The record is an 86-nucleotide sequence from Centaurea solstitialis, which matches "small nucleolar RNA snoR114" in Rfam. Pairs were carried over by alignment from the consensus structure, which was predicted with RNAalifold. It is annotated as a C/D-box small nucleolar RNA. Gene Ontology terms of the family: RNA processing and nucleolus. The organism belongs to Centaurea, within Eukaryota. The family has 24 seed sequences and 1,645 matches in Rfam 15.1.
RNA sequence: AAGCUGUGAUGAUAUAUGCGCUUCAAGUGUUGGUUGGGUCCUUCACAUUACUCUGAUAUUUCAGAUAUACAAGCGCUUCUGAGCUU
Numbered sequence: 001a002a003g004c005u006g007u008g009a010u011g012a013u014a015u016a017u018g019c020g021c022u023u024c025a026a027g028u029g030u031u032g033g034u035u036g037g038g039u040c041c042u043u044c045a046c047a048u049u050a051c052u053c054u055g056a057u058a059u060u061u062c063a064g065a066u067a068u069a070c071a072a073g074c075g076c077u078u079c080u081g082a083g084c085u086u
Stems, first nucleotide, its partner, number of pairs: 001086004